[Rfam]
RNA sequence: AGCGGUUUGGAACACAGACCUUAUGAAAGCAGUUUUAGUAAAGCAGUCCUCAGUUCAAGUGUUAUCCACAGAUACUCUUCUUCAUGAGCCUCCUCCUAAGUGCCAAAUAAGUAACUCUAAAUACAGGCCAUCACAGUCACAUCAGUGGCUCAUCAAUUAAGGAACGUAUCUAUGUCUAAUAAAAUGACUGGUUUAGUAAAAUGGUUUAACUCUGAUAAAGGCUUUGGUUUUAUCACGCCUGACGACGGCAGCAAAGAUGUAUUCGUACACUUCUCUGCAAUUCAGAGCGACAGCUAUAAAACGCUGGAUGAAGGACAGAAAGUCUCCUUCACCAUUGAAAGCGGCGCUAAAGGCCCGGCUGCAGGUAAUGUUACCGCGCUGUAAGCCACGCUUAUUAUCAGCGAUGCUUACAAUAGCGAUGAAGGCAACAGCCUGAGCAGUUAAC
Numbered sequence: 001a002g003c004g005g006u007u008u009g010g011a012a013c014a015c016a017g018a019c020c021u022u023a024u025g026a027a028a029g030c031a032g033u034u035u036u037a038g039u040a041a042a043g044c045a046g047u048c049c050u051c052a053g054u055u056c057a058a059g060u061g062u063u064a065u066c067c068a069c070a071g072a073u074a075c076u077c078u079u080c081u082u083c084a085u086g087a088g089c090c091u092c093c094u095c096c097u098a099a100g101u102g103c104c105a106a107a108u109a110a111g112u113a114a115c116u117c118u119a120a121a122u123a124c125a126g127g128c129c130a131u132c133a134c135a136g137u138c139a140c141a142u143c144a145g146u147g148g149c150u151c152a153u154c155a156a157u158u159a160a161g162g163a164a165c166g167u168a169u170c171u172a173u174g175u176c177u178a179a180u181a182a183a184a185u186g187a188c189u190g191g192u193u194u195a196g197u198a199a200a201a202u203g204g205u206u207u208a209a210c211u212c213u214g215a216u217a218a219a220g221g222c223u224u225u226g227g228u229u230u231u232a233u234c235a236c237g238c239c240u241g242a243c244g245a246c247g248g249c250a251g252c253a254a255a256g257a258u259g260u261a262u263u264c265g266u267a268c269a270c271u272u273c274u275c276u277g278c279a280a281u282u283c284a285g286a287g288c289g290a291c292a293g294c295u296a297u298a299a300a301a302c303g304c305u306g307g308a309u310g311a312a313g314g315a316c317a318g319a320a321a322g323u324c325u326c327c328u329u330c331a332c333c334a335u336u337g338a339a340a341g342c343g344g345c346g347c348u349a350a351a352g353g354c355c356c357g358g359c360u361g362c363a364g365g366u367a368a369u370g371u372u373a374c375c376g377c378g379c380u381g382u383a384a385g386c387c388a389c390g391c392u393u394a395u396u397a398u399c400a401g402c403g404a405u406g407c408u409u410a411c412a413a414u415a416g417c418g419a420u421g422a423a424g425g426c427a428a429c430a431g432c433c434u435g436a437g438c439a440g441u442u443a444a445c
Stems, first nucleotide, its partner, number of pairs: 004020006028240002032236002042231002046229001048227002050221002054219002061216004071207002074205003080174001082172001094163004099118002102115001176191003180187001243337003247333002256264002267325001269323004274319004278314001281308005289302001342357003346354003358382002361379001364375003385407002389403004412442003416438002423434004
Rfam assigns this 445-nucleotide sequence from Klebsiella sp. RIT-PI-d to the family "cspA thermoregulator". It scores 238 bits against the family's covariance model. The organism belongs to Klebsiella, within Bacteria. The base pairs follow the family's consensus structure, which is taken from published work.